[Rfam]
The record is a 112-nucleotide RNA sequence, which matches "drum RNA" in Rfam. Rfam describes the family as follows. Firmicutes, Bacteroidetes (1 example), Proteobacteria (2 examples), Spirochaetes (2 examples).
RNA sequence: AAGCGAUGAACUGAGAGAGCGUGUCAGCAAGCGUUGGCUCAGGGAGCUUCACCGGAGGGGUUCAGUGGUAAACCUCAAGCUGACUAGCGCAAGCGAAAGAAAAGCACAGAAA
Numbered sequence: 001a002a003g004c005g006a007u008g009a010a011c012u013g014a015g016a017g018a019g020c021g022u023g024u025c026a027g028c029a030a031g032c033g034u035u036g037g038c039u040c041a042g043g044g045a046g047c048u049u050c051a052c053c054g055g056a057g058g059g060g061u062u063c064a065g066u067g068g069u070a071a072a073c074c075u076c077a078a079g080c081u082g083a084c085u086a087g088c089g090c091a092a093g094c095g096a097a098a099g100a101a102a103a104g105c106a107c108a109g110a111a112a
Stems, first nucleotide, its partner, number of pairs: 001049004011042005018035005024083004065107003087094002

Source information
Rfam classes the family as a small RNA.